Rfam assigns this 392-nucleotide RNA from Rhodovulum sp. 12E13 to the family "Bacterial RNase P class A".
A search with the family's covariance model found it, with a score of 269 bits.
It is annotated as a ribozyme.
Gene Ontology terms of the family: ribonuclease P activity, dimeric ribonuclease P complex and tRNA processing.
About the family: Ribonuclease P (RNase P) is a ubiquitous endoribonuclease, found in archaea, bacteria and eukarya as well as chloroplasts and mitochondria. Its best characterised activity is the generation of mature 5'-ends of tRNAs by cleaving the 5'-leader elements of precursor-tRNAs.
The organism belongs to Rhodovulum, within Bacteria.

[Rfam]
RNA sequence: GCGGAUGGCCGGGCGGCCGCGGGCCUUUGGCUCGAGGAAAGUCCGGACUCCACGGAGCGACGGUGCCGGGUAACGCCCGGGCGGCGAGAGCCGACGGAAAGCGCCACAGAGAACAGUCUGCCCGCCUCAGGGCGGGUGAGGGUGAAACGGUGGGGUAAGAGCCCACCGCGGCCCCGGCGACGGGGACGGCACGGCAAGCCCCACCGGGAGCAAUGCCGAAUAGGAUCUCCGCGGGGCGUGCAAGCGCCCCGGGGCCGCUCCGGCCCCGAGAGAUCGGGUUGGCAGCUUGAGCCCGCCGGCAACGGCGGGCCGAGAGGAAUGGUCGCCCAGGGCCUUUGUCCGCUCGCGGUCGGGGGCCUGGACAGAAUCCGGCUUACAGGCCGUCCGCGCAU
Dot-bracket structure: ((((((((((((((((((.((((((...))))))....[[[.[[[[[((((.....[.[.((((((((((.....)))))(((((....)))).)((...(((((............(((((((((....)))))))..)).......((((((.......))))))(((.(((((....))))).)).)..)))..)))))))))))))...((((......((((((......................(((((.].].)))))...)))))).....))))......((((((((....))))))))..........)))))))........................................]]]]]]]].).))))))))))....